A member of the RNA family "MIR2275 microRNA precursor family" from Pyrus ussuriensis x Pyrus communis, 98 nucleotides long.
A search with the family's covariance model found it, with a score of 61 bits.
Taxonomically the source falls in Pyrus (Eukaryota, Streptophytina, Mesangiospermae, Pentapetalae).
Rfam 15.1 lists 785 matches to the family in 111 species.
Pairs were carried over by alignment from the consensus structure, which was predicted with RNAalifold.

[Rfam]
RNA sequence: AAGCCGUAUGUGAGAAUUGGAGGGGACUAAACGAAUUGGAUUUCUCGAUUGAAAAUCCUUAAUUUGUUUAGUUUCCUCCAAUAUCUUAUGUCCGACAU
Numbered sequence: 001a002a003g004c005c006g007u008a009u010g011u012g013a014g015a016a017u018u019g020g021a022g023g024g025g026a027c028u029a030a031a032c033g034a035a036u037u038g039g040a041u042u043u044c045u046c047g048a049u050u051g052a053a054a055a056u057c058c059u060u061a062a063u064u065u066g067u068u069u070a071g072u073u074u075c076c077u078c079c080a081a082u083a084u085c086u087u088a089u090g091u092c093c094g095a096c097a098u
Stems, first nucleotide, its partner, number of pairs: 005094002008091001011088004016082006023075008032066002